L31-Actinobacteria ribosomal protein leader: a 40-nucleotide RNA sequence from Epidermidibacterium keratini.
The organism belongs to Epidermidibacterium, within Bacteria.

RNA sequence: CAGGUACCGGUUCACGUCGCACCGCGGCGACCCGGCGACC
Number, nucleotide and partner (000 for none) at each position: 001c000002a000003g040004g039005u038006a000007c035008c034009g033010g032011u000012u000013c000014a000015c029016g028017u027018c026019g025020c000021a000022c000023c000024g000025c019026g018027g017028c016029g015030a000031c000032c010033c009034g008035g007036c000037g000038a005039c004040c003